[Rfam]
Nucleotides: 446
Stems, first nucleotide, its partner, number of pairs: 001385006011024005026129001027127006036120001040114006051103001052101002057097003061093004068086002070083005133158010163174003178354004183350003189344003198341001200340006217314002221311006228304003238295005244268003249263003269273001274289001278287002355375008386441001388438005396431003405425005411420003
Number, partner (000 for none) and nucleotide at each position: 001385c002384u003383c004382c005381g006380c007000g008000a009000a010000a011024u012023c013022u014021a015020u016000u017000u018000a019000g020015g021014u022013a023012g024011a025000g026129c027127g028126u029125c030124a031123g032122a033000c034000g035000a036120a037000u038000a039000c040114u041113g042112c043111c044110g045109g046000g047000g048000g049000u050000a051103g052101a053100g054000c055000a056000c057097u058096g059095g060000a061093u062092g063091g064090a065000u066000g067000c068086g069085g070083g071082g072081g073080g074079c075000g076000c077000g078000a079074g080073c081072c082071u083070u084000a085069c086068c087000a088000a089000u090064u091063c092062u093061a094000a095059c096058c097057a098000a099000a100053c101052u102000c103051c104000g105000a106000a107000u108000a109045c110044c111043g112042g113041u114040a115000a116000g117000u118000a119000c120036u121000a122032u123031c124030u125029g126028g127027c128000a129026g130000a131000c132000a133158c134157a135156c136155u137154a138153c139152g140151g141150g142149u143000g144000c145000u146000a147000a148000g149142g150141u151140c152139c153138g154137u155136a156135g157134u158133g159000g160000a161000g162000a163174g164173g165172g166000a167000a168000a169000c170000a171000g172165c173164c174163c175000u176000g177000a178354c179353c180352g181351a182000c183350a184349g185348c186000u187000a188000a189344g190343g191342u192000c193000c194000c195000u196000a197000a198341a199000u200340c201339a202338u203337g204336u205335c206000u207000a208000a209000g210000u211000g212000g213000g214000a215000a216000a217314g218313c219000a220000u221311g222310u223309g224308a225307g226306a227000a228304g229303g230302c231000c232000a233000a234000a235000a236000c237000a238295a239294c240293c241292a242291g243000g244268a245267g246266g247000u248000u249263g250262g251261c252000u253000u254000a255000g256000a257000a258000g259000c260000a261251g262250c263249c264000a265000c266246c267245c268244u269273u270000u271000a272000a273269a274289g275000a276000a277000a278287g279286c280000g281000u282000a283000a284000c285000a286279g287278c288000u289274c290000a291242c292241u293240g294239g295238u296000c297000u298000a299000a300000u301000a302230g303229c304228c305000a306226u307225c308224u309223u310222g311221c312000g313218g314217c315000g316000a317000a318000g319000a320000u321000g322000u323000a324000a325000c326000g327000g328000g329000g330000c331000u332000c333000a334000a335205g336204a337203c338202a339201u340200g341198u342191a343190c344189c345000g346000a347000a348185g349184c350183u351181u352180c353179g354178g355375a356374u357373u358372u359371g360370a361369u362368a363000c364000u365000u366000u367000g368362u369361a370360u371359c372358a373357a374356g375355u376000g377000g378000u379000a380006g381005c382004g383003g384002a385001g386441c387000g388438u389437u390436c391435u392434g393000u394000a395000a396431g397430c398429c399000u400000g401000u402000g403000a404000a405425g406424g407423g408422a409421u410000a411420c412419c413418u414000g415000u416000g417000a418413g419412g420411g421409g422408u423407c424406c425405u426000g427000g428000a429398g430397g431396u432000a433000u434392c435391a436390g437389a438388a439000g440000u441386g442000c443000g444000a445000a446000u